[Rfam]
The record is a 35-nucleotide RNA sequence from Paludibacter propionicigenes, which matches "DUF805b RNA" in Rfam. Lineage of the source: Bacteria > Pseudomonadati > Bacteroidales > Paludibacteraceae > Paludibacter propionicigenes.

RNA sequence: ACAGCGUAACCUGAAAAGCUGCAAAAGAGUAAGGA
Numbered sequence: 001a002c003a004g005c006g007u008a009a010c011c012u013g014a015a016a017a018g019c020u021g022c023a024a025a026a027g028a029g030u031a032a033g034g035a
Base pairs, nucleotide, nucleotide: 002021003020004019005018010034011033012032